RNA: Plastid-psbA-4 3UTR RNA
Nucleotides: 059
Stems, first nucleotide, its partner, number of pairs: 006057006013050005024041006
Number, partner (000 for none) and nucleotide at each position: 001000a002000a003000a004000a005000g006057a007056a008055a009054g010053g011052a012000g013050c014049a015048a016047u017046a018000a019000u020000c021000a022000u023000u024041u025040u026039c027038u028037u029036g030000u031000u032000c033000u034000a035000u036029c037028a038027a039026g040025g041024g042000g043000u044000g045000c046017u047016a048015u049014u050013g051000g052011u053010c054009c055008u056007u057006u058000c059000u